[Rfam]
RNA sequence: AUCUGGAGAGAGGCGGCACCGACGCUUGGGGCCGCCCACCGAAGGGGAUUUCGGCCGCCCUCGGGAGGCCGGAGAAGCUCUCAGGUACCGGGACAGAU
Numbered sequence: 001a002u003c004u005g006g007a008g009a010g011a012g013g014c015g016g017c018a019c020c021g022a023c024g025c026u027u028g029g030g031g032c033c034g035c036c037c038a039c040c041g042a043a044g045g046g047g048a049u050u051u052c053g054g055c056c057g058c059c060c061u062c063g064g065g066a067g068g069c070c071g072g073a074g075a076a077g078c079u080c081u082c083a084g085g086u087a088c089c090g091g092g093a094c095a096g097a098u
Stems, first nucleotide, its partner, number of pairs: 001098005012036006038086003041082002045080003051073002
This 98-nucleotide sequence from Enterovirga rhinocerotis belongs to the Rfam family "Glycine riboswitch aptamer". Its family is annotated with glycine biosynthetic process in the Gene Ontology. It scores 46 bits against the family's covariance model.